The family of this 83-nucleotide RNA sequence from Manduca sexta is "mir-6095 microRNA precursor family". NCBI's taxonomy places the organism under Eukaryota, Panarthropoda, Insecta, Aparaglossata, Manduca.
RNA sequence: UACAUGGUAUAACACUAGUAUGUCCAUUUCCAUGUCAUGAUUUGCACGACAUAGAAAUGAACAUAUUGUUGACAUAUUAUGUA
Numbered sequence: 001u002a003c004a005u006g007g008u009a010u011a012a013c014a015c016u017a018g019u020a021u022g023u024c025c026a027u028u029u030c031c032a033u034g035u036c037a038u039g040a041u042u043u044g045c046a047c048g049a050c051a052u053a054g055a056a057a058u059g060a061a062c063a064u065a066u067u068g069u070u071g072a073c074a075u076a077u078u079a080u081g082u083a
Stems, first nucleotide, its partner, number of pairs: 001083010013071002016068008025059006032052002035049002038046002

Its family is annotated with miRNA-mediated post-transcriptional gene silencing and RISC complex in the Gene Ontology.
It is one of the family's seed sequences.